[Rfam]
RNA: U1 spliceosomal RNA
Organism: Trema andersonii
RNA sequence: UCACUUACCUGGGCGGGGUCAGUGGGCUAUCAACAUGGCUCAUGGCCUAGGCUGGUGACCUCCAUUGCACAUGGGAGGGGUGCCAGUCUAUGGUCUCCUCAAGUAGGAGAUCCAACGUCAUAAUUUGUGGUGGUGGGGGGGCCUGCGUUCGCGCGGCCCCUGU
Numbered sequence: 001u002c003a004c005u006u007a008c009c010u011g012g013g014c015g016g017g018g019u020c021a022g023u024g025g026g027c028u029a030u031c032a033a034c035a036u037g038g039c040u041c042a043u044g045g046c047c048u049a050g051g052c053u054g055g056u057g058a059c060c061u062c063c064a065u066u067g068c069a070c071a072u073g074g075g076a077g078g079g080g081u082g083c084c085a086g087u088c089u090a091u092g093g094u095c096u097c098c099u100c101a102a103g104u105a106g107g108a109g110a111u112c113c114a115a116c117g118u119c120a121u122a123a124u125u126u127g128u129g130g131u132g133g134u135g136g137g138g139g140g141g142c143c144u145g146c147g148u149u150c151g152c153g154c155g156g157c158c159c160c161u162g163u
Stems, first nucleotide, its partner, number of pairs: 012119004016048006023042005049089003053086001055083003059079003062075002091114003094110003098106002136161004144155004